[Rfam]
This 84-nucleotide RNA sequence from Deinococcus yavapaiensis belongs to the Rfam family "c-di-GMP-II-GAG riboswitch aptamer".
NCBI's taxonomy places the organism under Bacteria, Thermotogati, Deinococcota, Deinococci, Deinococcus yavapaiensis.
On this family, see Weinberg et al., Proc Natl Acad Sci U S A 2017: "Bioinformatic analysis of riboswitch structures uncovers variant classes with altered ligand specificity".
RNA sequence: GACUUGGUAGGAAGCGACGAAACUCGUGACGAGAUCGGUCACCGGUCACGGGUGGAGCUAGUGGUGAGCCCGGCCCGCCAAUGC
Dot-bracket structure: (..(((((.((.(((......((((((((.......[[[[[[[..))))))))...)))...]]]]]..]]..)).)))))..)
A search with the family's covariance model found it, with a score of 61 bits.